[Rfam]
Record summary: The record is a 116-nucleotide RNA from Antrihabitans cavernicola, which matches "SAM (S-adenosyl methionine) riboswitch aptamer" in Rfam. The match comes from Rfam's covariance-model search (104 bits). Taxonomically the source falls in Antrihabitans (Bacteria, Bacillati, Actinomycetota, Actinomycetes).

RNA sequence: GGUCAUGAGUACCAGCGUUCAGCCCCGGCUUGCUGGUCGGCAACCCUCCUCCGCGGUGGGGUGCUCCGGGUGACGACCUGGCCGUACUCCAAUACCGGACUCGGCAAGCGCGUGAA
Numbered sequence: 001g002g003u004c005a006u007g008a009g010u011a012c013c014a015g016c017g018u019u020c021a022g023c024c025c026c027g028g029c030u031u032g033c034u035g036g037u038c039g040g041c042a043a044c045c046c047u048c049c050u051c052c053g054c055g056g057u058g059g060g061g062u063g064c065u066c067c068g069g070g071u072g073a074c075g076a077c078c079u080g081g082c083c084g085u086a087c088u089c090c091a092a093u094a095c096c097g098g099a100c101u102c103g104g105c106a107a108g109c110g111c112g113u114g115a116a
Base pairs, nucleotide, nucleotide: 001078002077003076004075009038011037012036013035014034015033016032021030022029039065040064041063044061045060046059048056049055081105082104083103084102086101088099089098090097